This 201-nucleotide sequence from Ureibacillus massiliensis belongs to the Rfam family "Bacillus sRNA ncr1575". The source organism's lineage runs through Bacteria, Caryophanales, Caryophanaceae, Ureibacillus and Ureibacillus massiliensis. The family's RNA type in Rfam is small RNA.
[Rfam]
RNA sequence: CAACUACGAAAUGAAGGGAAGAUGGGUGGACAAUGGACAAAUAAUCUUAUUUUAGUUCUGAGAUAAAUAAAAUGUUUAUUUCAACAAAAUAGGAUUAGUCUGCCCAUUUUCAUUAUAAAUUCAAGUUAUCUGUAAUUAAAGAUAGCUUUUUUAGAGAUGUAAAAAGACUAAUCCUUCCGAAAAAAACGGGAGGAUUUUUUU
Numbered sequence: 001c002a003a004c005u006a007c008g009a010a011a012u013g014a015a016g017g018g019a020a021g022a023u024g025g026g027u028g029g030a031c032a033a034u035g036g037a038c039a040a041a042u043a044a045u046c047u048u049a050u051u052u053u054a055g056u057u058c059u060g061a062g063a064u065a066a067a068u069a070a071a072a073u074g075u076u077u078a079u080u081u082c083a084a085c086a087a088a089a090u091a092g093g094a095u096u097a098g099u100c101u102g103c104c105c106a107u108u109u110u111c112a113u114u115a116u117a118a119a120u121u122c123a124a125g126u127u128a129u130c131u132g133u134a135a136u137u138a139a140a141g142a143u144a145g146c147u148u149u150u151u152u153a154g155a156g157a158u159g160u161a162a163a164a165a166g167a168c169u170a171a172u173c174c175u176u177c178c179g180a181a182a183a184a185a186a187c188g189g190g191a192g193g194a195u196u197u198u199u200u201u
Base pairs, nucleotide, nucleotide: 016111017110018109023106024105025104026103029100030099031098042097043096044095045094046093047092048091049090050089051088052087053086060082061081062080063079064078065077066076067075068074119152125146126145127144128143129142130141131140170196171195172194173193174192175191176190177189178188179187